[Rfam]
RNA sequence: UAUGCCCGUCAAUCGUGGGGGAUGAAGAACCAAAGGUUCGAGUCGAACGCAGUGAGACAACGUUGCCAGAGGCAACGGCCCGAAGGGCGAGGCCAUAGGCCGAGUCAUCCUGCACGACCCACCA
Numbered sequence: 001u002a003u004g005c006c007c008g009u010c011a012a013u014c015g016u017g018g019g020g021g022a023u024g025a026a027g028a029a030c031c032a033a034a035g036g037u038u039c040g041a042g043u044c045g046a047a048c049g050c051a052g053u054g055a056g057a058c059a060a061c062g063u064u065g066c067c068a069g070a071g072g073c074a075a076c077g078g079c080c081c082g083a084a085g086g087g088c089g090a091g092g093c094c095a096u097a098g099g100c101c102g103a104g105u106c107a108u109c110c111u112g113c114a115c116g117a118c119c120c121a122c123c124a
Base pairs, nucleotide, nucleotide: 015115016114017113019111020110021109023107030087031086037084038083039082040081044054045053061077062076063075064074065073066072
RNA: RtT RNA
Organism: Limnobaculum parvum